[Rfam]
RNA sequence: CUUUCAUGGAGUUAAGAAACCACGUAAACAAAGCGGAACCGAAAAGCUAAACGAGUAGGAAGAAU
Number, nucleotide and partner (000 for none) at each position: 001c000002u000003u000004u000005c000006a000007u022008g021009g020010a000011g000012u000013u000014a000015a000016g000017a000018a000019a000020c009021c008022a007023c000024g000025u000026a000027a000028a000029c000030a000031a000032a048033g047034c046035g000036g000037a000038a000039c059040c058041g000042a000043a000044a000045a000046g034047c033048u032049a000050a000051a000052c000053g000054a000055g000056u000057a000058g040059g039060a000061a000062g000063a000064a000065u000